[Rfam]
RNA sequence: AAUGGGAGAAUGAUAAAUCAGAUUUUUCCUCCUAAUUUUUAGUGUUUUUAGUUUGAUUUGAAUUUUUUUUAGGAGGAAAAAACUAAAAAUCAAGAGGAAAAAUCUGAUUUGUCAUUCUCUCAUU
Numbered sequence: 001a002a003u004g005g006g007a008g009a010a011u012g013a014u015a016a017a018u019c020a021g022a023u024u025u026u027u028c029c030u031c032c033u034a035a036u037u038u039u040u041a042g043u044g045u046u047u048u049u050a051g052u053u054u055g056a057u058u059u060g061a062a063u064u065u066u067u068u069u070u071a072g073g074a075g076g077a078a079a080a081a082a083c084u085a086a087a088a089a090u091c092a093a094g095a096g097g098a099a100a101a102a103u104c105u106g107a108u109u110u111g112u113c114a115u116u117c118u119c120u121c122a123u124u
Base pairs, nucleotide, nucleotide: 001124002123003122004121005120006119007118008117009116010115011114012113013112014111015110016109017108018107019106020105021104022103023102024101025100026099027098029096030095031094033092035090036089037088038087039086041084042083045080046079047078048077

Notes:
Shown here is a 124-nucleotide RNA from Gossypium laxum, a member of the family "MIR7504 microRNA precursor family". Its family is annotated with miRNA-mediated post-transcriptional gene silencing and RISC complex in the Gene Ontology. The family's consensus secondary structure was predicted with RNAalifold. The source organism's lineage runs through Eukaryota, Spermatophyta, Pentapetalae, rosids and Gossypium.